[Rfam]
RNA sequence: CAAUAGAGAAAGCCUUGUUAUUUCACUUUCUUAUCAAAGAGCAGAGAAAUUUGUUUUUGGAAAUUGGUGAGGUAAUUUGGCAGCGGCCAGACAACCGUAGGGAUGGUAUCCACAGAUGACGGGCUCUAAAUCCCGCUUUGUCUACUAAUACCAUCUCACAUUU
Numbered sequence: 001c002a003a004u005a006g007a008g009a010a011a012g013c014c015u016u017g018u019u020a021u022u023u024c025a026c027u028u029u030c031u032u033a034u035c036a037a038a039g040a041g042c043a044g045a046g047a048a049a050u051u052u053g054u055u056u057u058u059g060g061a062a063a064u065u066g067g068u069g070a071g072g073u074a075a076u077u078u079g080g081c082a083g084c085g086g087c088c089a090g091a092c093a094a095c096c097g098u099a100g101g102g103a104u105g106g107u108a109u110c111c112a113c114a115g116a117u118g119a120c121g122g123g124c125u126c127u128a129a130a131u132c133c134c135g136c137u138u139u140g141u142c143u144a145c146u147a148a149u150a151c152c153a154u155c156u157c158a159c160a161u162u163u
Stems, first nucleotide, its partner, number of pairs: 001059003007052003013046001015044005021038003025034001100157008119139001121138004